[Rfam]
A member of the RNA family "Arthropod 7SK RNA" from Oryctes borbonicus, 292 nucleotides long. Rfam 15.1 lists 229 matches to the family in 137 species.
RNA sequence: GGAGGUGUGUGUCUGUGAUGGCACAACUGAACAUUGAUCGCUUUAGUCUGGAUCUAGGCAGAUCUGCUCAGUCGGUGGCGUCACGUGGUCGAUCCAGUAGCCAAGGACUUUCUACCGAUGCCGGGGGUCGGUUCCCCUCAGGUAUCUACUCGCUCGUCGCACGGUAGCCAUCCUGGCUCCUUGAACGUCCGCCAUAACCAAAUUCACUUGGGGGGUCACGGAUAGAUUACAAUAUUUAGAACACCUCCAUAAUACAGGCACUACGAAAGUACGUAGCCUGCCAUUUUUUUUG
Numbered sequence: 001g002g003a004g005g006u007g008u009g010u011g012u013c014u015g016u017g018a019u020g021g022c023a024c025a026a027c028u029g030a031a032c033a034u035u036g037a038u039c040g041c042u043u044u045a046g047u048c049u050g051g052a053u054c055u056a057g058g059c060a061g062a063u064c065u066g067c068u069c070a071g072u073c074g075g076u077g078g079c080g081u082c083a084c085g086u087g088g089u090c091g092a093u094c095c096a097g098u099a100g101c102c103a104a105g106g107a108c109u110u111u112c113u114a115c116c117g118a119u120g121c122c123g124g125g126g127g128u129c130g131g132u133u134c135c136c137c138u139c140a141g142g143u144a145u146c147u148a149c150u151c152g153c154u155c156g157u158c159g160c161a162c163g164g165u166a167g168c169c170a171u172c173c174u175g176g177c178u179c180c181u182u183g184a185a186c187g188u189c190c191g192c193c194a195u196a197a198c199c200a201a202a203u204u205c206a207c208u209u210g211g212g213g214g215g216u217c218a219c220g221g222a223u224a225g226a227u228u229a230c231a232a233u234a235u236u237u238a239g240a241a242c243a244c245c246u247c248c249a250u251a252a253u254a255c256a257g258g259c260a261c262u263a264c265g266a267a268a269g270u271a272c273g274u275a276g277c278c279u280g281c282c283a284u285u286u287u288u289u290u291u292g
Base pairs, nucleotide, nucleotide: 001248002247003246004245005244006243007242008241015084016083017082018081019080027071028070029069032066033065036064037063038062039061040059041058042057043056046053257282258281259280261276262275263274264273